[Rfam]
Shown here is an 84-nucleotide sequence from Peribacillus faecalis, a member of the family "Group II catalytic intron D1-D4-1". NCBI's taxonomy places the organism under Bacteria, Bacillati, Bacillota, Bacillaceae, Peribacillus. For this family Rfam cites "The ins and outs of group II introns" (Bonen and Vogel, Trends Genet, 2001).

RNA sequence: UAACCUGCUUAGCGAUAAGCAGCUGAACCAUCAGAAGUCAGCAGAGGUCAUAGUACGGAUGGGUCUAGAACCAUCCGGAAGGAC
Numbered sequence: 001u002a003a004c005c006u007g008c009u010u011a012g013c014g015a016u017a018a019g020c021a022g023c024u025g026a027a028c029c030a031u032c033a034g035a036a037g038u039c040a041g042c043a044g045a046g047g048u049c050a051u052a053g054u055a056c057g058g059a060u061g062g063g064u065c066u067a068g069a070a071c072c073a074u075c076c077g078g079a080a081g082g083a084c
Base pairs, nucleotide, nucleotide: 001025002024005022006021007020008019009018010017011016038045039044047084048083049082056077057076058075059074060073061072
Group II introns are found in rRNA, tRNA and mRNA of organelles in fungi, plants and protists, and also in mRNA in bacteria. Gene Ontology term of the family: Group II intron splicing.